[Rfam]
RNA sequence: GGUCGCAAGCUUAAGGCCACAGCAGAAACGCUUAUGCUGCGCCCCUAUCAGAUUCCAACAAACCUGCGAAUUCUGCU
Numbered sequence: 001g002g003u004c005g006c007a008a009g010c011u012u013a014a015g016g017c018c019a020c021a022g023c024a025g026a027a028a029c030g031c032u033u034a035u036g037c038u039g040c041g042c043c044c045c046u047a048u049c050a051g052a053u054u055c056c057a058a059c060a061a062a063c064c065u066g067c068g069a070a071u072u073c074u075g076c077u
Base pairs, nucleotide, nucleotide: 015043016042017041021077022076023075024074025073026072027071029039030038049066050065051064053062054061
Rfam assigns this 77-nucleotide sequence from Alligator mississippiensis to the family "Mammalian CPEB3 ribozyme". The source organism's lineage runs through Eukaryota, Bilateria, Chordata, Sauria and Alligator. It scores 36 bits against the family's covariance model.